[Rfam]
RNA sequence: CCACCGGAUCUGCCCAGCGAAAACACGGCGGGGACGGGGGAACCACGUAGGACGGGCCGCGGCCCUUGGGGUGAAGCCUCCUUCGGGAGGCCGGGUGAUCUCCCCAUCCGAACCCGACAGCUCACCUCGCAGGCGUCGGAGGAGAAAGUG
Numbered sequence: 001c002c003a004c005c006g007g008a009u010c011u012g013c014c015c016a017g018c019g020a021a022a023a024c025a026c027g028g029c030g031g032g033g034a035c036g037g038g039g040g041a042a043c044c045a046c047g048u049a050g051g052a053c054g055g056g057c058c059g060c061g062g063c064c065c066u067u068g069g070g071g072u073g074a075a076g077c078c079u080c081c082u083u084c085g086g087g088a089g090g091c092c093g094g095g096u097g098a099u100c101u102c103c104c105c106a107u108c109c110g111a112a113c114c115c116g117a118c119a120g121c122u123c124a125c126c127u128c129g130c131a132g133g134c135g136u137c138g139g140a141g142g143a144g145a146a147a148g149u150g
Stems, first nucleotide, its partner, number of pairs: 002135001004133002009033003035129005044068002069115003077090004093109004
This 150-nucleotide RNA sequence from Myceligenerans xiligouense belongs to the Rfam family "c-di-AMP riboswitch aptamer (ydaO/yuaA leader)". The family has 106 seed sequences and 7,607 matches in Rfam 15.1. Lineage of the source: Bacteria > Actinomycetota > Actinomycetes > Micrococcales > Myceligenerans. It scores 70 bits against the family's covariance model.